The record is a 106-nucleotide RNA sequence, which matches "TPP riboswitch aptamer (THI element)" in Rfam. A search with the family's covariance model found it, with a score of 67 bits.
[Rfam]
RNA sequence: GGCUUUUGGUGCUGGUGCCUCAUCCCCUCACAGGGGUGUGGCUGAGAUUAUACAGCUUGAACCUGAUCGGGGUAAUACCUGCGUAGGGAACCAUUCCAGUCCUUUU
Numbered sequence: 001g002g003c004u005u006u007u008g009g010u011g012c013u014g015g016u017g018c019c020u021c022a023u024c025c026c027c028u029c030a031c032a033g034g035g036g037u038g039u040g041g042c043u044g045a046g047a048u049u050a051u052a053c054a055g056c057u058u059g060a061a062c063c064u065g066a067u068c069g070g071g072g073u074a075a076u077a078c079c080u081g082c083g084u085a086g087g088g089a090a091c092c093a094u095u096c097c098a099g100u101c102c103u104u105u106u
Stems, first nucleotide, its partner, number of pairs: 007093004011056004016050001017042003021038006062087004068081004